[Rfam]
RNA sequence: UCUCCUUGAGGGACCUCGGUCUCUACCCAGGACUCUUCAUGACCAGGAGGCCGAGGCCCCUCUCAGGCGGC
Dot-bracket structure: ((.(((.(((((.((((.((((((...((.((....)).))...)).)))).)))).)))))..))).)).
RNA: mir-665 microRNA precursor family
Organism: Loxodonta africana